RNA: mraW RNA
Organism: Streptomyces piniterrae
RNA sequence: CUUCGUACGUACGGCUCGGCCUCCUCCCGCUCCACCGGUCCUCCGACGGCACUUCCCCGUCGCCGGAGAACCACUUCCCCUUCAGAGCGGGCGGGGACCAAGCGGUACGUGCGGCACCAC
Numbered sequence: 001c002u003u004c005g006u007a008c009g010u011a012c013g014g015c016u017c018g019g020c021c022u023c024c025u026c027c028c029g030c031u032c033c034a035c036c037g038g039u040c041c042u043c044c045g046a047c048g049g050c051a052c053u054u055c056c057c058c059g060u061c062g063c064c065g066g067a068g069a070a071c072c073a074c075u076u077c078c079c080c081u082u083c084a085g086a087g088c089g090g091g092c093g094g095g096g097a098c099c100a101a102g103c104g105g106u107a108c109g110u111g112c113g114g115c116a117c118c119a120c
Base pairs, nucleotide, nucleotide: 010107011106012105014103015102016101018099019098021096022095023094024093026091027090028089029088030087031086032085037072038071039070041068042067043066044065045064047062048061049060